RNA: Mason-Pfizer monkey virus packaging signal
Organism: Nannospalax galili
RNA sequence: UGGCGCCCAACGUGGCUUGGAUACUGGGGACAACGUGAGGGACACGACAAAAAAAGAAGGGGUGCGCACCUGCUCAAAUAGUUCAGAGACGUCACGGUAGCCUGCUGUGACCGAGCCGACAGGUAAGUUGGUCGUCAAUCAUGGGGCAAGAAUUAAGUCAGCGUCAAAAGUAUGUGAUGCAGUUAAGAGAAGCGUUACAGGCAAGAGGAGUAAAGGUUACAACUAAAGAUUUAUUUCAUUUCUUUGAUUUUGUACAGGACAUUUGUCCUU
Numbered sequence: 001u002g003g004c005g006c007c008c009a010a011c012g013u014g015g016c017u018u019g020g021a022u023a024c025u026g027g028g029g030a031c032a033a034c035g036u037g038a039g040g041g042a043c044a045c046g047a048c049a050a051a052a053a054a055a056g057a058a059g060g061g062g063u064g065c066g067c068a069c070c071u072g073c074u075c076a077a078a079u080a081g082u083u084c085a086g087a088g089a090c091g092u093c094a095c096g097g098u099a100g101c102c103u104g105c106u107g108u109g110a111c112c113g114a115g116c117c118g119a120c121a122g123g124u125a126a127g128u129u130g131g132u133c134g135u136c137a138a139u140c141a142u143g144g145g146g147c148a149a150g151a152a153u154u155a156a157g158u159c160a161g162c163g164u165c166a167a168a169a170g171u172a173u174g175u176g177a178u179g180c181a182g183u184u185a186a187g188a189g190a191a192g193c194g195u196u197a198c199a200g201g202c203a204a205g206a207g208g209a210g211u212a213a214a215g216g217u218u219a220c221a222a223c224u225a226a227a228g229a230u231u232u233a234u235u236u237c238a239u240u241u242c243u244u245u246g247a248u249u250u251u252g253u254a255c256a257g258g259a260c261a262u263u264u265g266u267c268c269u270u
Stems, first nucleotide, its partner, number of pairs: 006029003012024003034046003082121001083119002090113002093109005129149001131147002135144003154197003157193002205245006214232005256269005